The record is a 176-nucleotide RNA from Oryza nivara, which matches "MIR807 microRNA precursor family" in Rfam. Pairs were carried over by alignment from the consensus structure, which was predicted with WAR. The family has 30 seed sequences and 1,514 matches in Rfam 15.1. Rfam links the family to the GO terms RISC complex and miRNA-mediated post-transcriptional gene silencing. It scores 168 bits against the family's covariance model. Lineage of the source: Eukaryota > Viridiplantae > Mesangiospermae > Oryzeae > Oryza.
RNA sequence: AACCACACUAUCGAUGAAUGGAUUCACCCGUGAGAUGACAUGAUCGUUCCAUCUAGGAUGAGGACGUGGCAUCCUAUUAAUUUCGUGCGAUGGCUGGUAAUAGGAUGACAUGUCCUCGUCCUAGAUGAAACAGUCACGUCAUCUCGCGGGUGAAUCCAUUCAUUGAUAGUGUGGUU
Numbered sequence: 001a002a003c004c005a006c007a008c009u010a011u012c013g014a015u016g017a018a019u020g021g022a023u024u025c026a027c028c029c030g031u032g033a034g035a036u037g038a039c040a041u042g043a044u045c046g047u048u049c050c051a052u053c054u055a056g057g058a059u060g061a062g063g064a065c066g067u068g069g070c071a072u073c074c075u076a077u078u079a080a081u082u083u084c085g086u087g088c089g090a091u092g093g094c095u096g097g098u099a100a101u102a103g104g105a106u107g108a109c110a111u112g113u114c115c116u117c118g119u120c121c122u123a124g125a126u127g128a129a130a131c132a133g134u135c136a137c138g139u140c141a142u143c144u145c146g147c148g149g150g151u152g153a154a155u156c157c158a159u160u161c162a163u164u165g166a167u168a169g170u171g172u173g174g175u176u
Stems, first nucleotide, its partner, number of pairs: 001176007009168007017160003021156008030147004035142005041136004046131003051126002054123002057120002063114003070107010086097001